The record is a 67-nucleotide RNA sequence from Rhinopomastus cyanomelas, which matches "Small nucleolar RNA SNORD58" in Rfam. NCBI's taxonomy places the organism under Eukaryota, Craniata, Saurischia, Coraciimorphae, Rhinopomastus. A search with the family's covariance model found it, with a score of 67 bits. The base pairs follow the family's consensus structure, which was predicted with PFOLD. By type it is a C/D-box small nucleolar RNA. snoRNA U58 is found in introns 1, 3 and 6 of the ribosomal protein RPL17 gene in humans. Its family is annotated with nucleolus and RNA processing in the Gene Ontology.
[Rfam]
RNA sequence: UGGCCGUGAUGACUAUCUUAGGACACCUUUGGAACCCCCAUGAAACCACCACUUCGUUCUGAGCCAU
Numbered sequence: 001u002g003g004c005c006g007u008g009a010u011g012a013c014u015a016u017c018u019u020a021g022g023a024c025a026c027c028u029u030u031g032g033a034a035c036c037c038c039c040a041u042g043a044a045a046c047c048a049c050c051a052c053u054u055c056g057u058u059c060u061g062a063g064c065c066a067u
Stems, first nucleotide, its partner, number of pairs: 001066004